[Rfam]
RNA: c-di-AMP riboswitch aptamer (ydaO/yuaA leader)
RNA sequence: CCGGCGACCGCGCCGAAUCCCGCGGACGGCUCCGUCCGGGGAACCGGGGACCCGAUCUUCAGGGGUGAAUCCGUCCCGCGGGACGGUAGGGCGACUCCGGCCCGAACCCGUCAGCUGACCCGGUAGGCGGUACAGGAGAGGACAC
Numbered sequence: 001c002c003g004g005c006g007a008c009c010g011c012g013c014c015g016a017a018u019c020c021c022g023c024g025g026a027c028g029g030c031u032c033c034g035u036c037c038g039g040g041g042a043a044c045c046g047g048g049g050a051c052c053c054g055a056u057c058u059u060c061a062g063g064g065g066u067g068a069a070u071c072c073g074u075c076c077c078g079c080g081g082g083a084c085g086g087u088a089g090g091g092c093g094a095c096u097c098c099g100g101c102c103c104g105a106a107c108c109c110g111u112c113a114g115c116u117g118a119c120c121c122g123g124u125a126g127g128c129g130g131u132a133c134a135g136g137a138g139a140g141g142a143c144a145c
Base pairs, nucleotide, nucleotide: 011129012128013127014126018042019041020040043124044123045122046121047120048119053062063109064108065107071086072085073084074083089103090102091101092100